Nucleotides: 089
Stems, first nucleotide, its partner, number of pairs: 012080003017075004022070005028064010
Number, partner (000 for none) and nucleotide at each position: 001000a002000c003000u004000g005000g006000u007000u008000a009000u010000u011000g012080c013079c014078a015000u016000a017075a018074g019073c020072g021000a022070g023069g024068u025067a026066u027000a028064g029063a030062g031061u032060u033059c034058c035057u036056a037055c038000g039000u040000u041000a042000a043000u044000a045000u046000u047000u048000g049000c050000a051000a052000u053000c054000a055037g056036u057035a058034g059033g060032a061031a062030c063029u064028u065000c066026a067025u068024a069023c070022c071000g072020u073019g074018c075017u076000c077000u078014u079013g080012g081000a082000g083000a084000g085000c086000c087000a088000u089000u
A member of the RNA family "mir-276 microRNA precursor family" from Lucilia cuprina, 89 nucleotides long. The organism belongs to Lucilia, within Eukaryota. The family has 42 seed sequences and 200 matches in Rfam 15.1.